[Rfam]
RNA: Plastid-psbM 3UTR RNA
RNA sequence: GAGCUGAUAGUAUGGUAGAAAGAUUCAUAUGAAUCUUUCUACCAUACUAUCAAUUAGAUUAAUCUUUUUUCGUGUAAGACGCUGUACUA
Numbered sequence: 001g002a003g004c005u006g007a008u009a010g011u012a013u014g015g016u017a018g019a020a021a022g023a024u025u026c027a028u029a030u031g032a033a034u035c036u037u038u039c040u041a042c043c044a045u046a047c048u049a050u051c052a053a054u055u056a057g058a059u060u061a062a063u064c065u066u067u068u069u070u071c072g073u074g075u076a077a078g079a080c081g082c083u084g085u086a087c088u089a
Stems, first nucleotide, its partner, number of pairs: 006051021